[Rfam]
RNA: SAM (S-adenosyl methionine) riboswitch aptamer
Organism: Gordonia sp. NB41Y
Nucleotides: 114
Base pairs, nucleotide, nucleotide: 001078002077003076004075009038011037012036013035014034015033016032021030022029039065040064041063044061045060046059048056049055081103082102083101084100085099086098087097089096090095
Number, partner (000 for none) and nucleotide at each position: 001078g002077g003076u004075c005000a006000u007000g008000a009038g010000u011037g012036c013035c014034a015033g016032c017000g018000a019000c020000a021030a022029g023000c024000c025000c026000c027000g028000g029022c030021u031000c032016g033015c034014u035013g036012g037011u038009c039065g040064g041063c042000a043000a044061c045060c046059c047000u048056c049055c050000u051000c052000c053000g054000c055049g056048g057000u058000g059046g060045g061044g062000u063041g064040c065039u066000c067000c068000g069000g070000g071000u072000g073000a074000c075004g076003a077002c078001c079000u080000g081103g082102c083101c084100g085099u086098g087097u088000a089096c090095c091000g092000a093000c094000c095090g096089g097087g098086c099085a100084c101083g102082g103081c104000a105000a106000g107000c108000g109000u110000g111000g112000a113000u114000c